[Rfam]
RNA sequence: GAUAUUUGGGGCGAUGGAGUUCGCCAUUAACCCCGUGUCGAACGGUGAUGACUCCUACCAGGUG
Numbered sequence: 001g002a003u004a005u006u007u008g009g010g011g012c013g014a015u016g017g018a019g020u021u022c023g024c025c026a027u028u029a030a031c032c033c034c035g036u037g038u039c040g041a042a043c044g045g046u047g048a049u050g051a052c053u054c055c056u057a058c059c060a061g062g063u064g
Base pairs, nucleotide, nucleotide: 010025011024012023013022016055017054018053019052020051021050033045034044035043036042
Rfam assigns this 64-nucleotide RNA from Sporomusa malonica to the family "Fluoride riboswitch aptamer (crcB RNA motif)".
NCBI's taxonomy places the organism under Bacteria, Bacillota, Negativicutes, Selenomonadales, Sporomusa.